[Rfam]
RNA sequence: GCUCACCACACAGAUUUCCAUACAGUAAAAGAAAGUAUCACUUAUCUCAACCCUAGUGAUUGGACCAGUACUGUGCUCAUCAUAAUUGAGCCAUAAUUCACGAUUCCUCAUCAGAUACAAAGUCACAACCUUAUAUUGUCCCUUGUUUCUAAACCAAUCUCACAGAUUAUGAUGGCUUUGUUUCUGAUGAAGGAUUUUGGAUUGUUUCUUAACACUGAGAAGCACAUUGUUGGUUCAAUUCCUGGGUUUGAGAUAAUUGACACUUCUUAUACCGUAUGAAAACAUGUGUGGUGGGC
Number, nucleotide and partner (000 for none) at each position: 001g296002c295003u294004c293005a292006c291007c290008a289009c288010a287011c286012a285013g000014a000015u282016u281017u280018c000019c278020a277021u276022a275023c274024a000025g272026u271027a270028a000029a268030a267031g266032a265033a264034a000035g263036u262037a000038u260039c259040a258041c000042u256043u255044a254045u253046c252047u251048c250049a249050a248051c000052c000053c245054u244055a243056g241057u000058g240059a239060u238061u237062g236063g235064a234065c233066c232067a231068g230069u229070a228071c000072u226073g225074u224075g223076c222077u221078c000079a000080u218081c217082a216083u000084a000085a000086u212087u211088g210089a209090g208091c000092c000093a205094u204095a203096a202097u201098u200099c199100a198101c000102g196103a195104u194105u193106c192107c000108u190109c189110a188111u187112c186113a185114g184115a000116u000117a181118c180119a179120a178121a177122g000123u000124c000125a000126c000127a000128a000129c175130c174131u000132u172133a170134u169135a167136u166137u165138g000139u000140c000141c000142c000143u000144u000145g000146u000147u000148u000149c000150u000151a000152a000153a000154c000155c000156a000157a000158u000159c000160u000161c000162a000163c000164a000165g137166a136167u135168u000169a134170u133171g000172a132173u000174g130175g129176c000177u121178u120179u119180g118181u117182u000183u000184c114185u113186g112187a111188u110189g109190a108191a000192g106193g105194a104195u103196u102197u000198u100199g099200g098201a097202u096203u095204g094205u093206u000207u000208c090209u089210u088211a087212a086213c000214a000215c000216u082217g081218a080219g000220a000221a077222g076223c075224a074225c073226a072227u000228u070229g069230u068231u067232g066233g065234u064235u063236c062237a061238a060239u059240u058241c056242c000243u055244g054245g053246g000247u000248u050249u049250g048251a047252g046253a045254u044255a043256a042257u000258u040259g039260a038261c000262a036263c035264u033265u032266c031267u030268u029269a000270u027271a026272c025273c000274g023275u022276a021277u020278g019279a000280a017281a016282a015283c000284a000285u012286g011287u010288g009289u008290g007291g006292u005293g004294g003295g002296c001
Shown here is a 296-nucleotide sequence from Arabidopsis lyrata, a member of the family "MIR869 microRNA precursor family".
Its family is annotated with miRNA-mediated post-transcriptional gene silencing and RISC complex in the Gene Ontology.